[Rfam]
RNA sequence: AGUUCGUUUCAGGGCGGGGUGCGAUUCCCCACUGGCGGUACAGCCCGCGACCACUCCCAAAGAGUGCUGACCCGGUGAGACUCCGGGGCCAACGGUAUAGUCCGGAUGCAAGAAACGGCAG
Numbered sequence: 001a002g003u004u005c006g007u008u009u010c011a012g013g014g015c016g017g018g019g020u021g022c023g024a025u026u027c028c029c030c031a032c033u034g035g036c037g038g039u040a041c042a043g044c045c046c047g048c049g050a051c052c053a054c055u056c057c058c059a060a061a062g063a064g065u066g067c068u069g070a071c072c073c074g075g076u077g078a079g080a081c082u083c084c085g086g087g088g089c090c091a092a093c094g095g096u097a098u099a100g101u102c103c104g105g106a107u108g109c110a111a112g113a114a115a116c117g118g119c120a121g
Stems, first nucleotide, its partner, number of pairs: 004118007017029003031101002033091002035048004043089002052066002071087005093104003
A member of the RNA family "FMN riboswitch aptamer (RFN element)" from Faecalibacterium prausnitzii, 121 nucleotides long.
The match comes from Rfam's covariance-model search (110 bits).
For this family Rfam cites "Regulation of riboflavin biosynthesis and transport genes in bacteria by transcriptional and translational attenuation" (Vitreschak et al., Nucleic Acids Res, 2002).
The base pairs follow the family's consensus structure, which is taken from published work.
Gene Ontology term of the family: FMN binding.